RNA sequence: CCCUCAUGAUGAGUUGCCAUGCUAAUACUGAGCCACCAGGUAGGGCAUUAUUGCCCUGGUUUGGGUGCCAGUGAGUUUAACAAAACUUCUCAUGUGGAGACCUGAAGGGC
Numbered sequence: 001c002c003c004u005c006a007u008g009a010u011g012a013g014u015u016g017c018c019a020u021g022c023u024a025a026u027a028c029u030g031a032g033c034c035a036c037c038a039g040g041u042a043g044g045g046c047a048u049u050a051u052u053g054c055c056c057u058g059g060u061u062u063g064g065g066u067g068c069c070a071g072u073g074a075g076u077u078u079a080a081c082a083a084a085a086c087u088u089c090u091c092a093u094g095u096g097g098a099g100a101c102c103u104g105a106a107g108g109g110c
Base pairs, nucleotide, nucleotide: 001109002108003107004106041058042057043056044055045054

The record is a 110-nucleotide RNA from Echinops telfairi, which matches "Small nucleolar RNA U6-53/MBII-28" in Rfam. Rfam's curators put it in the seed alignment. The family has 25 seed sequences and 780 matches in Rfam 15.1.